A member of the RNA family "Small nucleolar RNA snoR8a" from Theobroma umbraticum, 93 nucleotides long.
The literature on the family includes a 2001 paper in RNA by Brown et al., "Multiple snoRNA gene clusters from Arabidopsis".
Gene Ontology terms of the family: RNA processing and nucleolus.
The source organism's lineage runs through Eukaryota, Streptophytina, Euphyllophyta, Pentapetalae and Theobroma.
The family has 7 seed sequences and 956 matches in Rfam 15.1.

[Rfam]
RNA sequence: GAGUUAGUAAUGAUUAUAAAAAUAAUUUUUUAUUCUGAUUUGCUUAAUUUGAGCAUGAUAAACUUCAUAUUACACCUAUAGAAUCUGAGCUAC
Numbered sequence: 001g002a003g004u005u006a007g008u009a010a011u012g013a014u015u016a017u018a019a020a021a022a023u024a025a026u027u028u029u030u031u032a033u034u035c036u037g038a039u040u041u042g043c044u045u046a047a048u049u050u051g052a053g054c055a056u057g058a059u060a061a062a063c064u065u066c067a068u069a070u071u072a073c074a075c076c077u078a079u080a081g082a083a084u085c086u087g088a089g090c091u092a093c
Stems, first nucleotide, its partner, number of pairs: 003093002006091002